[Rfam]
RNA sequence: GGGCCACUGAGUUCGUUUGGUGGUUAGACGUACUUUGCUAAGCUCUAGCACCAUUUGAAUUCAGUUCAUC
Dot-bracket structure: ((....(((((((((..(((((..((((...............)))).)))))..)))))))))....))
RNA: mir-29 microRNA precursor family
Organism: Rhipicephalus microplus